This 128-nucleotide sequence from Rotaria sp. Silwood2 belongs to the Rfam family "U4 spliceosomal RNA". For this family Rfam cites "Structure of a pre-catalytic spliceosome" (Plaschka et al., Nature, 2017). It is annotated as a spliceosomal small nuclear RNA. Rfam's curators write: U4 small nuclear RNA (U4 snRNA) is a component of the major U2-dependent spliceosome.
[Rfam]
RNA sequence: GAUCUUGCGUAGAGGUAGUACCUUAUCUAAUGAGCGUUUAGUGAGGAAAGGUUAUUGCUAAUUGCAAACUACUACCAAUGCCUCACAUCGAUCUUGUAUCGAUGUAAUUUCUCCUGCUUCUUCGGAAG
Numbered sequence: 001g002a003u004c005u006u007g008c009g010u011a012g013a014g015g016u017a018g019u020a021c022c023u024u025a026u027c028u029a030a031u032g033a034g035c036g037u038u039u040a041g042u043g044a045g046g047a048a049a050g051g052u053u054a055u056u057g058c059u060a061a062u063u064g065c066a067a068a069c070u071a072c073u074a075c076c077a078a079u080g081c082c083u084c085a086c087a088u089c090g091a092u093c094u095u096g097u098a099u100c101g102a103u104g105u106a107a108u109u110u111c112u113c114c115u116g117c118u119u120c121u122u123c124g125g126a127a128g
Base pairs, nucleotide, nucleotide: 020052021051022050023049024048026047027046028045034042035041085105086104087103088102089101090100091099092098117128118127119126120125